[Rfam]
RNA sequence: CAGUCGAAACGGCAAACUUAUCGAAAGGUAAGGACGCAAAGCCACAAGCCUAAAGAAUAUGCAUUCUAUGGCGGUUGGGCUACCGAA
Number, nucleotide and partner (000 for none) at each position: 001c000002a000003g000004u000005c000006g000007a000008a000009a000010c000011g000012g037013c036014a000015a000016a000017c032018u031019u030020a029021u028022c027023g000024a000025a000026a000027g022028g021029u020030a019031a018032g017033g000034a000035c000036g013037c012038a000039a000040a081041g080042c079043c078044a000045c077046a076047a075048g072049c071050c070051u000052a000053a000054a000055g066056a065057a064058u063059a000060u000061g000062c000063a058064u057065u056066c055067u000068a000069u000070g050071g049072c048073g000074g000075u047076u046077g045078g043079g042080c041081u040082a000083c000084c000085g000086a000087a000

A member of the RNA family "c-di-GMP-I riboswitch aptamer" from Xylanibacillus composti, 87 nucleotides long. Pairs were carried over by alignment from the consensus structure, which is taken from published work. A search with the family's covariance model found it, with a score of 85 bits.